[Rfam]
RNA sequence: UGACGGAAGGGCACCACCAGGAGUGGGGUCUGCGGCUCAAUUUGACUCAACACGGGGAAACUUACCCGGUCCGGACACCGCCAGGAUUGACAGACCGAGGCUCUUUCUUGAUUCGGUGGGUGGUGGUGCAUGGCCGUUCCUAGUCGGUGGAGCGAUCUGUCUGGUUAAUUCCGAUAACGGACGAGACUCCGGCCUGCCAGUUAGCGUCGGGGCGUCAUCGAGGCGGUCGCGGCGUCCGUCAACGCCUCCCGUGCGUGCGAGCGCCGUUCACGCGCGCGUCUCCGCGCCGGGUCGGUAGGGCCCGCGCCGCCCCGGUCGCCCCCCGACCGAUCAGACUUUCUUAGAGGGACCGGCGGUGGCCAGCCGCCACGAGAAGGAGCGAUAAACAGGUCUGUGAUGCCCUUAGACGUUCCGGGGCCGCACGCGUGCUAACACUGGGGGAGCCAACGCGGCUGACCGCCUGGCCCGAAGGGUGUCGGGAAAGCGUUGAGUCUCCCCCUGGACUGGGCCCGGGGCUUGGCCACUGUGCCCCGCCAACGAGGAAUUCCCCGUAGGCGCGGGUCAUAACCCCGCGCCGACUACGUCCCUGCCCUUUGUACA
Numbered sequence: 001u002g003a004c005g006g007a008a009g010g011g012c013a014c015c016a017c018c019a020g021g022a023g024u025g026g027g028g029u030c031u032g033c034g035g036c037u038c039a040a041u042u043u044g045a046c047u048c049a050a051c052a053c054g055g056g057g058a059a060a061c062u063u064a065c066c067c068g069g070u071c072c073g074g075a076c077a078c079c080g081c082c083a084g085g086a087u088u089g090a091c092a093g094a095c096c097g098a099g100g101c102u103c104u105u106u107c108u109u110g111a112u113u114c115g116g117u118g119g120g121u122g123g124u125g126g127u128g129c130a131u132g133g134c135c136g137u138u139c140c141u142a143g144u145c146g147g148u149g150g151a152g153c154g155a156u157c158u159g160u161c162u163g164g165u166u167a168a169u170u171c172c173g174a175u176a177a178c179g180g181a182c183g184a185g186a187c188u189c190c191g192g193c194c195u196g197c198c199a200g201u202u203a204g205c206g207u208c209g210g211g212g213c214g215u216c217a218u219c220g221a222g223g224c225g226g227u228c229g230c231g232g233c234g235u236c237c238g239u240c241a242a243c244g245c246c247u248c249c250c251g252u253g254c255g256u257g258c259g260a261g262c263g264c265c266g267u268u269c270a271c272g273c274g275c276g277c278g279u280c281u282c283c284g285c286g287c288c289g290g291g292u293c294g295g296u297a298g299g300g301c302c303c304g305c306g307c308c309g310c311c312c313c314g315g316u317c318g319c320c321c322c323c324c325g326a327c328c329g330a331u332c333a334g335a336c337u338u339u340c341u342u343a344g345a346g347g348g349a350c351c352g353g354c355g356g357u358g359g360c361c362a363g364c365c366g367c368c369a370c371g372a373g374a375a376g377g378a379g380c381g382a383u384a385a386a387c388a389g390g391u392c393u394g395u396g397a398u399g400c401c402c403u404u405a406g407a408c409g410u411u412c413c414g415g416g417g418c419c420g421c422a423c424g425c426g427u428g429c430u431a432a433c434a435c436u437g438g439g440g441g442a443g444c445c446a447a448c449g450c451g452g453c454u455g456a457c458c459g460c461c462u463g464g465c466c467c468g469a470a471g472g473g474u475g476u477c478g479g480g481a482a483a484g485c486g487u488u489g490a491g492u493c494u495c496c497c498c499c500u501g502g503a504c505u506g507g508g509c510c511c512g513g514g515g516c517u518u519g520g521c522c523a524c525u526g527u528g529c530c531c532c533g534c535c536a537a538c539g540a541g542g543a544a545u546u547c548c549c550c551g552u553a554g555g556c557g558c559g560g561g562u563c564a565u566a567a568c569c570c571c572g573c574g575c576c577g578a579c580u581a582c583g584u585c586c587c588u589g590c591c592c593u594u595u596g597u598a599c600a
Base pairs, nucleotide, nucleotide: 001600002599003597004596005595007594008593009592010591011590012589013588016584017583020548021547022546023545024544025433027430028429029428031426032425033424034423035421036420041056042055043054044053065416066415067414068413069412071409076118077117078116079115080114089107090106092104093103094102122403123402125401126400127399128398131397132395133391134390135389136387137386138385143182144181145180147178148177149158150157151156162173163172164171188378189377190376193347194346195345197344199342200341203338204337352368353367354366355365356364357363437499438498439497440496441495442494443493449487450486451485460480461479464476465475467473506538511533512532513531514530515529516528554576555575556574557573558572559571560570561569